[Rfam]
The record is a 118-nucleotide sequence from Variovorax sp. JS1663, which matches "Group II catalytic intron D1-D4-4" in Rfam. A search with the family's covariance model found it, with a score of 68 bits. About the family: Group II introns are found in rRNA, tRNA and mRNA of organelles in fungi, plants and protists, and also in mRNA in bacteria. Taxonomically the source falls in Variovorax (Bacteria, Betaproteobacteria, Burkholderiales, Comamonadaceae). Gene Ontology term of the family: Group II intron splicing.
RNA sequence: CAGCGGGUGCGAACCCCUCCCGGCAAAUGUCGCUCCAGCCGGUAGCAAUCGGAGCAAUCGUGGAGGUAACGAAGCGGUUGAAGCCUUCGGUGUCGAGGCUAGAGUCCCCCGAAUGCGA
Numbered sequence: 001c002a003g004c005g006g007g008u009g010c011g012a013a014c015c016c017c018u019c020c021c022g023g024c025a026a027a028u029g030u031c032g033c034u035c036c037a038g039c040c041g042g043u044a045g046c047a048a049u050c051g052g053a054g055c056a057a058u059c060g061u062g063g064a065g066g067u068a069a070c071g072a073a074g075c076g077g078u079u080g081a082a083g084c085c086u087u088c089g090g091u092g093u094c095g096a097g098g099c100u101a102g103a104g105u106c107c108c109c110c111g112a113a114u115g116c117g118a
Base pairs, nucleotide, nucleotide: 020042021041022040023039024038050089051088052087053086054085055080056079057078058077059076060075065070093112094111095110097108098107